The family of this 216-nucleotide RNA from Rhamnella rubrinervis is "Plant small nucleolar RNA U3". Rfam classes the family as a C/D-box small nucleolar RNA. Its family is annotated with nucleolus and RNA processing in the Gene Ontology. The match comes from Rfam's covariance-model search (199 bits).
[Rfam]
RNA sequence: ACGACCUUACUUGAACAGGAUCUGUUCUAUAGGCUCGUACCUCUGUAUCCUUGAGUUCUAAGGAGACAGGAACCUACACCUGGUGGAUGAAUCAUGACCGUGCGAUCAGAGCGUGAUUAACGGCAUCUAGGAUCCAAGGGUCCUCAGAAGCUGUAGAGGAUCGUUCUCAGCCAGUCUCACUUGGCUUGGGAUGGUCGCACGGUUGUCUGACAGGUU
Numbered sequence: 001a002c003g004a005c006c007u008u009a010c011u012u013g014a015a016c017a018g019g020a021u022c023u024g025u026u027c028u029a030u031a032g033g034c035u036c037g038u039a040c041c042u043c044u045g046u047a048u049c050c051u052u053g054a055g056u057u058c059u060a061a062g063g064a065g066a067c068a069g070g071a072a073c074c075u076a077c078a079c080c081u082g083g084u085g086g087a088u089g090a091a092u093c094a095u096g097a098c099c100g101u102g103c104g105a106u107c108a109g110a111g112c113g114u115g116a117u118u119a120a121c122g123g124c125a126u127c128u129a130g131g132a133u134c135c136a137a138g139g140g141u142c143c144u145c146a147g148a149a150g151c152u153g154u155a156g157a158g159g160a161u162c163g164u165u166c167u168c169a170g171c172c173a174g175u176c177u178c179a180c181u182u183g184g185c186u187u188g189g190g191a192u193g194g195u196c197g198c199a200c201g202g203u204u205g206u207c208u209g210a211c212a213g214g215u216u
Base pairs, nucleotide, nucleotide: 001038002037003035005033006032007031013027014026015025016024017023018022043069044068045067046066048064049063050062051061052060053059078215079214080213081212082211097203098202099201100200101199102198103197104196105195106194107193108192110165111164112163113162120154121153122152123151124150126148127147128146129144130143131142132141133140134139166189167188169186170185171184172183173182174181

About the family: Small nucleolar RNAs (snoRNAs) are involved in the processing and modification of rRNA in the nucleolus. On this family, see Zwieb, Nucleic Acids Res 1997: "The uRNA database". NCBI's taxonomy places the organism under Eukaryota, Spermatophyta, Mesangiospermae, Rhamneae, Rhamnella.